RNA sequence: CCCUCCGGAGUCCUAGGCGGGGGGCCAGGGGACCUCCCUAGUGUCUGUGGCGGUGGGAUCCCGUGGCAGUGUUUUCCUGGUGGCCCGGCU
Numbered sequence: 001c002c003c004u005c006c007g008g009a010g011u012c013c014u015a016g017g018c019g020g021g022g023g024g025c026c027a028g029g030g031g032a033c034c035u036c037c038c039u040a041g042u043g044u045c046u047g048u049g050g051c052g053g054u055g056g057g058a059u060c061c062c063g064u065g066g067c068a069g070u071g072u073u074u075u076c077c078u079g080g081u082g083g084c085c086c087g088g089c090u
Stems, first nucleotide, its partner, number of pairs: 005088004011083002013080005019073002022070001024067004029062004033053002036050002038047001
mir-663 microRNA precursor family: a 90-nucleotide RNA from Gorilla gorilla. The base pairs follow the family's consensus structure, which was predicted with RNAalifold. Gene Ontology terms of the family: RISC complex and miRNA-mediated post-transcriptional gene silencing. The literature on the family includes a 2008 paper in Leukemia by Takada et al., "MicroRNA expression profiles of human leukemias". NCBI's taxonomy places the organism under Eukaryota, Euteleostomi, Mammalia, Eutheria, Gorilla gorilla.